Nucleotides: 069
Base pairs, nucleotide, nucleotide: 015025016024028065029064030063032059033058037054038053039052041050043048
Number, partner (000 for none) and nucleotide at each position: 001000c002000u003000u004000g005000a006000u007000c008000g009000a010000c011000c012000c013000c014000a015025g016024c017000a018000a019000c020000a021000g022000c023000g024016g025015c026000c027000g028065c029064u030063c031000c032059c033058g034000a035000u036000c037054c038053u039052g040000c041050c042000c043048g044000u045000a046000g047000g048043u049000c050041g051000c052039c053038a054037g055000c056000a057000g058033c059032g060000c061000c062000u063030g064029a065028g066000c067000c068000u069000c
The record is a 69-nucleotide RNA from Streptosporangium album, which matches "ASpks TB sRNA" in Rfam. On this family, see Arnvig and Young, Mol Microbiol 2009: "Identification of small RNAs in Mycobacterium tuberculosis".